A member of the RNA family "radC RNA" from Steroidobacter agaridevorans, 147 nucleotides long.
It scores 81 bits against the family's covariance model.
RNA sequence: AUCCUCACCGCAUGUCUGCUGAAUCACCAGCAACAUGCCAGUAGUCAUCGGUCCGUUGGACUACGACGCGGCUUGCGCCGCGUGACCGAACCAGUUCGCAAAGCAUCCUUUGUGCGAACGUCAUCAAGUCAACCUGAUGAUGGAUGC
Numbered sequence: 001a002u003c004c005u006c007a008c009c010g011c012a013u014g015u016c017u018g019c020u021g022a023a024u025c026a027c028c029a030g031c032a033a034c035a036u037g038c039c040a041g042u043a044g045u046c047a048u049c050g051g052u053c054c055g056u057u058g059g060a061c062u063a064c065g066a067c068g069c070g071g072c073u074u075g076c077g078c079c080g081c082g083u084g085a086c087c088g089a090a091c092c093a094g095u096u097c098g099c100a101a102a103g104c105a106u107c108c109u110u111u112g113u114g115c116g117a118a119c120g121u122c123a124u125c126a127a128g129u130c131a132a133c134c135u136g137a138u139g140a141u142g143g144a145u146g147c
Stems, first nucleotide, its partner, number of pairs: 011037004015032001018031004041064006050087004066083006114147003121140006
NCBI's taxonomy places the organism under Bacteria, Pseudomonadati, Steroidobacterales, Steroidobacteraceae, Steroidobacter.